[Rfam]
This 95-nucleotide sequence from Cavia porcellus belongs to the Rfam family "Small nucleolar RNA SNORD21". The family's consensus secondary structure was predicted with PFOLD. Rfam links the family to the GO terms RNA processing and nucleolus. By type it is a C/D-box small nucleolar RNA.

RNA sequence: GCCAAAUGAUGAUAGUCUACAAACUGAGCAGUCAGUAGUUGGUCCUUUGAUUGCAUAUGAUAUAAUAAUUGUUUCAAGACGGGACUGAUGGCAGC
Numbered sequence: 001g002c003c004a005a006a007u008g009a010u011g012a013u014a015g016u017c018u019a020c021a022a023a024c025u026g027a028g029c030a031g032u033c034a035g036u037a038g039u040u041g042g043u044c045c046u047u048u049g050a051u052u053g054c055a056u057a058u059g060a061u062a063u064a065a066u067a068a069u070u071g072u073u074u075c076a077a078g079a080c081g082g083g084a085c086u087g088a089u090g091g092c093a094g095c
Base pairs, nucleotide, nucleotide: 001092002091003090004089